[Rfam]
RNA: Plastid-psbN 5UTR RNA
RNA sequence: UGCGACCCUCAUAAGUGGCGUAGUCCCCCAGCUUUGUGCUACUUUACCAUAUUCCGAAUUU
Numbered sequence: 001u002g003c004g005a006c007c008c009u010c011a012u013a014a015g016u017g018g019c020g021u022a023g024u025c026c027c028c029c030a031g032c033u034u035u036g037u038g039c040u041a042c043u044u045u046a047c048c049a050u051a052u053u054c055c056g057a058a059u060u061u
Stems, first nucleotide, its partner, number of pairs: 017045002020042005026036001